[Rfam]
The record is a 97-nucleotide RNA sequence from Thermobrachium celere, which matches "Glycine riboswitch aptamer" in Rfam. The match comes from Rfam's covariance-model search (65 bits).
RNA sequence: AUGAAGCAAAUAGGAGAGACCCGAAAGGGCGCCGAAGGGGUAAGUAAAACUCGCCAAGUUUUAUGAUACUCUCAGGCAAAAGUACUAUUUGUGGACA
Numbered sequence: 001a002u003g004a005a006g007c008a009a010a011u012a013g014g015a016g017a018g019a020c021c022c023g024a025a026a027g028g029g030c031g032c033c034g035a036a037g038g039g040g041u042a043a044g045u046a047a048a049a050c051u052c053g054c055c056a057a058g059u060u061u062u063a064u065g066a067u068a069c070u071c072u073c074a075g076g077c078a079a080a081a082g083u084a085c086u087a088u089u090u091g092u093g094g095a096c097a
Stems, first nucleotide, its partner, number of pairs: 006092008020029003031077003034073002038071003044064007
Dot-bracket structure: .....((((((((......(((....))).(((((..(((...(((((((.......)))))))....))))).))).......)))))))).....